[Rfam]
RNA sequence: GUCCCGUGUGAUGAAUUUGGAUUCAAUUACUCACGACGGUCGUCCGAUUCACCUCCGGGUGCUGUGAUGCAAUGAUCCAAAAUACCUGACGGUU
Numbered sequence: 001g002u003c004c005c006g007u008g009u010g011a012u013g014a015a016u017u018u019g020g021a022u023u024c025a026a027u028u029a030c031u032c033a034c035g036a037c038g039g040u041c042g043u044c045c046g047a048u049u050c051a052c053c054u055c056c057g058g059g060u061g062c063u064g065u066g067a068u069g070c071a072a073u074g075a076u077c078c079a080a081a082a083u084a085c086c087u088g089a090c091g092g093u094u
Stems, first nucleotide, its partner, number of pairs: 001094001003092002050059001052057001
This 94-nucleotide RNA from Ipomoea nil belongs to the Rfam family "Small nucleolar RNA Z161/Z228". Rfam 15.1 lists 630 matches to the family in 214 species. Lineage of the source: Eukaryota > Spermatophyta > Magnoliopsida > Ipomoeeae > Ipomoea. The family's consensus secondary structure was predicted with PFOLD.